Ribosomal protein L20 leader: a 130-nucleotide RNA sequence from Priestia filamentosa. Pairs were carried over by alignment from the consensus structure, which was predicted with CMfinder. A search with the family's covariance model found it, with a score of 66 bits. Taxonomically the source falls in Priestia (Bacteria, Bacillati, Bacillota, Bacilli). On this family, see Zengel and Lindahl, Prog Nucleic Acid Res Mol Biol 1994: "Diverse mechanisms for regulating ribosomal protein synthesis in Escherichia coli". It is annotated as a cis-regulatory leader.
[Rfam]
RNA sequence: UGUGGAAAGAAGAGGCACCCGCUUCUCACCUGAUUGACGCAUCUUUUGCAGUUGAUAGGUUUCAACACAACUUUUAUGAUAAUAUAAAAGCUGACGUGUGGGUGCUCUGUGCUCACACGUUUUUUAUUGA
Numbered sequence: 001u002g003u004g005g006a007a008a009g010a011a012g013a014g015g016c017a018c019c020c021g022c023u024u025c026u027c028a029c030c031u032g033a034u035u036g037a038c039g040c041a042u043c044u045u046u047u048g049c050a051g052u053u054g055a056u057a058g059g060u061u062u063c064a065a066c067a068c069a070a071c072u073u074u075u076a077u078g079a080u081a082a083u084a085u086a087a088a089a090g091c092u093g094a095c096g097u098g099u100g101g102g103u104g105c106u107c108u109g110u111g112c113u114c115a116c117a118c119g120u121u122u123u124u125u126a127u128u129g130a
Base pairs, nucleotide, nucleotide: 011026012025013024014023015022016021028060029059030058036053037052038051039049040048097117098116099115100114101113102112103111104110105109
Dot-bracket structure: ..........((((((....)))))).(((.....(((((.......)).)))....)))....................................(((((((((...))))))))).............